[Rfam]
RNA sequence: GCCCGGGGGGUGAAAAGUUGUACAGCUCAUGUUUUUUUUCUGUACUCAUAAGCGUAUAGCUUUUCCCCUUUGGUU
Numbered sequence: 001g002c003c004c005g006g007g008g009g010g011u012g013a014a015a016a017g018u019u020g021u022a023c024a025g026c027u028c029a030u031g032u033u034u035u036u037u038u039u040c041u042g043u044a045c046u047c048a049u050a051a052g053c054g055u056a057u058a059g060c061u062u063u064u065c066c067c068c069u070u071u072g073g074u075u
Stems, first nucleotide, its partner, number of pairs: 003073005010067001012065001014063002018059005026052002029049003

Overview
A member of the RNA family "mir-965 microRNA precursor family" from Phaedon cochleariae, 75 nucleotides long. On this family, see Huang et al., Bioorg Khim 2012: "The regulation of silkworm fibroin L chain production by miRNA-965 and miRNA-1926 in insect cells". Lineage of the source: Eukaryota > Metazoa > Bilateria > Eumetabola > Phaedon.